[Rfam]
RNA sequence: UAGUAGCGGUGAAGAUGCCGCUUACCCGCCACGGGACGGAAAGACCCCGUGCACCUUUACUACAGCUUAACAUUGAAUGCCGGUCAGGCAUGUGUAGGAUAGGCGGGAGGAGUUGAAGCGGUGUCGCCAGGCAUCGUGGAUCCAACCUUGAAAUACCGCCCUUGGCUGACUGGCGUUCUAACCGCGAGAGUGGGACGGUGUUUGGUGGGUAGUUUGACUGGGGUGGUCACCUCCGAAAGGGUAACGGAGGUUUCCCAAGGUUGGCUCAUACCGGACGGUAAUCGGUAGGGGAGUGCAAUAGCAGAAGCCAGCUUGACAGUGAGGCCUACAAGCCGAUCUGGGACGAAAGUCGGGUAUAGUGAUCCGGUGGUUCCGCAUGGAAGGGCCAUCGCUCAAAGGAUAAAAGGUACGCCGGGGAUAACAGGCUGAUCUCCCCCAAGAGCUCACAUCGACGGGGAGGUUUGGCACCUCGAUGUCGGCUCGUCACAUCCUGGGGCUGGAGAAGGUUCCAAGGGUUCGGCUGUUCGCCGAUUAAAGUGGCACGCGAGCUGGGUUCAGAACGUCGUGAGACAGUUCGGUCCCUAUCUGUGGUGGGCGUG
Numbered sequence: 001u002a003g004u005a006g007c008g009g010u011g012a013a014g015a016u017g018c019c020g021c022u023u024a025c026c027c028g029c030c031a032c033g034g035g036a037c038g039g040a041a042a043g044a045c046c047c048c049g050u051g052c053a054c055c056u057u058u059a060c061u062a063c064a065g066c067u068u069a070a071c072a073u074u075g076a077a078u079g080c081c082g083g084u085c086a087g088g089c090a091u092g093u094g095u096a097g098g099a100u101a102g103g104c105g106g107g108a109g110g111a112g113u114u115g116a117a118g119c120g121g122u123g124u125c126g127c128c129a130g131g132c133a134u135c136g137u138g139g140a141u142c143c144a145a146c147c148u149u150g151a152a153a154u155a156c157c158g159c160c161c162u163u164g165g166c167u168g169a170c171u172g173g174c175g176u177u178c179u180a181a182c183c184g185c186g187a188g189a190g191u192g193g194g195a196c197g198g199u200g201u202u203u204g205g206u207g208g209g210u211a212g213u214u215u216g217a218c219u220g221g222g223g224u225g226g227u228c229a230c231c232u233c234c235g236a237a238a239g240g241g242u243a244a245c246g247g248a249g250g251u252u253u254c255c256c257a258a259g260g261u262u263g264g265c266u267c268a269u270a271c272c273g274g275a276c277g278g279u280a281a282u283c284g285g286u287a288g289g290g291g292a293g294u295g296c297a298a299u300a301g302c303a304g305a306a307g308c309c310a311g312c313u314u315g316a317c318a319g320u321g322a323g324g325c326c327u328a329c330a331a332g333c334c335g336a337u338c339u340g341g342g343a344c345g346a347a348a349g350u351c352g353g354g355u356a357u358a359g360u361g362a363u364c365c366g367g368u369g370g371u372u373c374c375g376c377a378u379g380g381a382a383g384g385g386c387c388a389u390c391g392c393u394c395a396a397a398g399g400a401u402a403a404a405a406g407g408u409a410c411g412c413c414g415g416g417g418a419u420a421a422c423a424g425g426c427u428g429a430u431c432u433c434c435c436c437c438a439a440g441a442g443c444u445c446a447c448a449u450c451g452a453c454g455g456g457g458a459g460g461u462u463u464g465g466c467a468c469c470u471c472g473a474u475g476u477c478g479g480c481u482c483g484u485c486a487c488a489u490c491c492u493g494g495g496g497c498u499g500g501a502g503a504a505g506g507u508u509c510c511a512a513g514g515g516u517u518c519g520g521c522u523g524u525u526c527g528c529c530g531a532u533u534a535a536a537g538u539g540g541c542a543c544g545c546g547a548g549c550u551g552g553g554u555u556c557a558g559a560a561c562g563u564c565g566u567g568a569g570a571c572a573g574u575u576c577g578g579u580c581c582c583u584a585u586c587u588g589u590g591g592u593g594g595g596c597g598u599g
Base pairs, nucleotide, nucleotide: 005022006021007020008019009018025595026594027593028592029591030590031589032588034587035586036585038582039581046416047415048414049413051412052411053408054407055406056405057404059213060212061211062210066205067204069202070201071200072199075178076177077176078175079174080173081172082171083170084169085168086167087166089164090163092161102160103159104158105157106156109143110142111141118137119136120135121134122133123132124131125130182193183192184191216228217227218226219225229251230250231249232248233247234246252397254354255353260312261311262310263309264308265307266292267291269287270286271285272284273283274282293302294301317340318339319338323334324333325332342351343350344349365391366390367389368388369387370386371385373384374383425466426465427464429463430460431459432458433457434456435455436454440450441449477552478550479549480548481547482544483541484540485539486538487537490515491514493510494509495508496507497506498505517531518530519529520528521527558576559575560574561573562571563570564569

Shown here is a 599-nucleotide part of an RNA from Spirosoma linguale, a member of the family "Bacterial large subunit ribosomal RNA". NCBI's taxonomy places the organism under Bacteria, Pseudomonadati, Bacteroidota, Spirosoma, Spirosoma linguale. Its family is annotated with ribosome and structural constituent of ribosome in the Gene Ontology. It is one of the family's seed sequences. Pairs were carried over by alignment from the consensus structure, which is taken from published work.